[Rfam]
Rfam assigns this 59-nucleotide RNA sequence from Rhodobacteraceae bacterium EhC02 to the family "sul1 RNA". The match comes from Rfam's covariance-model search (71 bits). Rfam classes the family as a riboswitch.
RNA sequence: CAUGGACCCGGCCCACAGGUGCCGGGUGGCUCUUCCAGCCGCCGAUCCGCUGGACAACG
Numbered sequence: 001c002a003u004g005g006a007c008c009c010g011g012c013c014c015a016c017a018g019g020u021g022c023c024g025g026g027u028g029g030c031u032c033u034u035c036c037a038g039c040c041g042c043c044g045a046u047c048c049g050c051u052g053g054a055c056a057a058c059g
Stems, first nucleotide, its partner, number of pairs: 006027006014019001034054006